Glutamine riboswitch aptamer (glnA leader): a 53-nucleotide RNA sequence. It is one of the family's seed sequences. A reference for the family is Ames and Breaker (2011), "Bacterial aptamers that selectively bind glutamine", RNA Biol. The base pairs follow the family's consensus structure, which is taken from published work. Rfam links the family to the GO term glutamine binding.
RNA sequence: AUCGUUCAACCUUUGUAAAGGUCGGAAGUAAGCUACAGCUGAAGGAACGCGUA
Numbered sequence: 001a002u003c004g005u006u007c008a009a010c011c012u013u014u015g016u017a018a019a020g021g022u023c024g025g026a027a028g029u030a031a032g033c034u035a036c037a038g039c040u041g042a043a044g045g046a047a048c049g050c051g052u053a
Stems, first nucleotide, its partner, number of pairs: 003049005009022005025050001031040003